[Rfam]
RNA sequence: GCGAAGUGCCCUCUCGAACCGACCGAUAGAAGCGUCAACACUCCUAUCCUUCCAGUUCAGGGGGCACUUUCUAUACCCGGGGUCCCGCCGGUUCGACCUUCAUCGGUGGAUCGAG
Numbered sequence: 001g002c003g004a005a006g007u008g009c010c011c012u013c014u015c016g017a018a019c020c021g022a023c024c025g026a027u028a029g030a031a032g033c034g035u036c037a038a039c040a041c042u043c044c045u046a047u048c049c050u051u052c053c054a055g056u057u058c059a060g061g062g063g064g065c066a067c068u069u070u071c072u073a074u075a076c077c078c079g080g081g082g083u084c085c086c087g088c089c090g091g092u093u094c095g096a097c098c099u100u101c102a103u104c105g106g107u108g109g110a111u112c113g114a115g
Stems, first nucleotide, its partner, number of pairs: 003070011016058002019055001021053001022051001025048003029044001031042002094113003099110004

Shown here is a 115-nucleotide RNA sequence from Micromonospora craniellae, a member of the family "Actinobacteria sRNA Ms_IGR-7".
Rfam classes the family as a small RNA.
The match comes from Rfam's covariance-model search (63 bits).
The base pairs follow the family's consensus structure.
The organism belongs to Micromonospora, within Bacteria.
On this family, see Li et al., RNA 2013: "Identification of small RNAs in Mycobacterium smegmatis using heterologous Hfq".